[Rfam]
RNA: c-di-GMP-I riboswitch aptamer
RNA sequence: UGCCGAUACUAGUAAACUUAUCGAAAGAUAAGGACACAAAGCUAUGGGCCUACGGGAGAAAUCUCCUACGGUCGCCAAGCUGCCGAA
Numbered sequence: 001u002g003c004c005g006a007u008a009c010u011a012g013u014a015a016a017c018u019u020a021u022c023g024a025a026a027g028a029u030a031a032g033g034a035c036a037c038a039a040a041g042c043u044a045u046g047g048g049c050c051u052a053c054g055g056g057a058g059a060a061a062u063c064u065c066c067u068a069c070g071g072u073c074g075c076c077a078a079g080c081u082g083c084c085g086a087a
Base pairs, nucleotide, nucleotide: 012037013036017032018031019030020029021028022027040081041080042079043078045077046076047075048072049071050070055066056065057064058063